[Rfam]
RNA sequence: UGGUAGAUGCACCCUGAAUAUUUUCCCUGGCUCACUCGUGGGUUGGGGAAUUUUUUU
Numbered sequence: 001u002g003g004u005a006g007a008u009g010c011a012c013c014c015u016g017a018a019u020a021u022u023u024u025c026c027c028u029g030g031c032u033c034a035c036u037c038g039u040g041g042g043u044u045g046g047g048g049a050a051u052u053u054u055u056u057u
Stems, first nucleotide, its partner, number of pairs: 002013003024049011
Dot-bracket structure: .(((......)))..........(((((((((((....)))))))))))........
Annotation
The family of this 57-nucleotide sequence from Leptolyngbyaceae cyanobacterium M33_DOE_097 is "Nitrogen stress-induced RNA 1". The literature on the family includes a 2010 paper in J Mol Biol by Ionescu et al., "Heterocyst-specific transcription of NsiR1, a non-coding RNA encoded in a tandem array of direct repeats in cyanobacteria". NCBI's taxonomy places the organism under Bacteria, Bacillati, Cyanophyceae, Leptolyngbyales, Leptolyngbyaceae. Rfam classes the family as a small RNA. It scores 58 bits against the family's covariance model.